[Rfam]
RNA sequence: ACGCAGGAAAGGAGGUGGUCCAGAAGAUGAAGUCUUUGAGGACUGGCGAGGUGGCCGUCCGCUAGGACGAGCUCGCGUUCGCGCGGCGCUCGUCCGCAGCGAAUCCCAACGGACACCCGGAUCCCGGGCCGCCGGAAAUGGUCCGACCGGCCCCGCCCACACCGGCGGGAAGCGGCCCGGGAUCCGUCUUUG
Numbered sequence: 001a002c003g004c005a006g007g008a009a010a011g012g013a014g015g016u017g018g019u020c021c022a023g024a025a026g027a028u029g030a031a032g033u034c035u036u037u038g039a040g041g042a043c044u045g046g047c048g049a050g051g052u053g054g055c056c057g058u059c060c061g062c063u064a065g066g067a068c069g070a071g072c073u074c075g076c077g078u079u080c081g082c083g084c085g086g087c088g089c090u091c092g093u094c095c096g097c098a099g100c101g102a103a104u105c106c107c108a109a110c111g112g113a114c115a116c117c118c119g120g121a122u123c124c125c126g127g128g129c130c131g132c133c134g135g136a137a138a139u140g141g142u143c144c145g146a147c148c149g150g151c152c153c154c155g156c157c158c159a160c161a162c163c164g165g166c167g168g169g170a171a172g173c174g175g176c177c178c179g180g181g182a183u184c185c186g187u188c189u190u191u192g
Base pairs, nucleotide, nucleotide: 014059015058016057017056018055019054060101061100062099063098065095066094067093068092070090071089072088118186119185120184121183122182123181124180125179126178127177128176129175130174131151132150133149134148135147